A member of the RNA family "MIR9563 microRNA precursor family" from Brassica oleracea, 123 nucleotides long. NCBI's taxonomy places the organism under Eukaryota, Euphyllophyta, Brassicaceae, Brassiceae, Brassica oleracea.

RNA sequence: GGAAUAUUAGAACUCGUUUCUUAAUUUUUAACUAAAAAAAUUAAGAACCAUCUCUUAAAACUCUUAUUUAAGAACCGGUUCUUACAUUUUUUUAGUUAAAAGUUAAGAGGAUUCUCAUAUUCC
Number, nucleotide and partner (000 for none) at each position: 001g123002g122003a121004a120005u119006a118007u117008u000009a115010g114011a113012a112013c000014u110015c109016g000017u000018u000019u108020c107021u106022u105023a104024a103025u102026u101027u100028u099029u098030a097031a096032c095033u094034a093035a092036a091037a090038a089039a088040a000041u000042u084043a083044a082045g081046a080047a079048c000049c000050a000051u000052c000053u000054c000055u000056u000057a000058a000059a000060a000061c000062u000063c000064u000065u000066a000067u000068u000069u000070a000071a000072g000073a000074a000075c000076c000077g000078g000079u047080u046081c045082u044083u043084a042085c000086a000087u000088u039089u038090u037091u036092u035093u034094a033095g032096u031097u030098a029099a028100a027101a026102g025103u024104u023105a022106a021107g020108a019109g015110g014111a000112u012113u011114c010115u009116c000117a007118u006119a005120u004121u003122c002123c001